[Rfam]
RNA sequence: UUCUCUUGUCCUUCAUUCCACCGGAGUCUGUCUGCUGCCACCAGACUUCAGUGGGGUGAAGCUCAGGAGCCG
Numbered sequence: 001u002u003c004u005c006u007u008g009u010c011c012u013u014c015a016u017u018c019c020a021c022c023g024g025a026g027u028c029u030g031u032c033u034g035c036u037g038c039c040a041c042c043a044g045a046c047u048u049c050a051g052u053g054g055g056g057u058g059a060a061g062c063u064c065a066g067g068a069g070c071c072g
Stems, first nucleotide, its partner, number of pairs: 011061006019053003023049004028044003